[Rfam]
RNA sequence: UUAAGAAAAUGGCAAACCUAUUGAAAGAUAGGGACGCAAAGCUUCAGACCUAAGACAGAAAUGUUAUGGUAGCUGGGUUACCAAA
Number, nucleotide and partner (000 for none) at each position: 001u000002u000003a000004a000005g000006a000007a000008a000009a000010u000011g000012g037013c036014a000015a000016a000017c032018c031019u030020a029021u028022u027023g000024a000025a000026a000027g022028a021029u020030a019031g018032g017033g000034a000035c000036g013037c012038a000039a000040a079041g078042c077043u076044u000045c075046a074047g073048a070049c069050c068051u000052a000053a000054g000055a064056c063057a062058g000059a000060a000061a000062u057063g056064u055065u000066a000067u000068g050069g049070u048071a000072g000073c047074u046075g045076g043077g042078u041079u040080a000081c000082c000083a000084a000085a000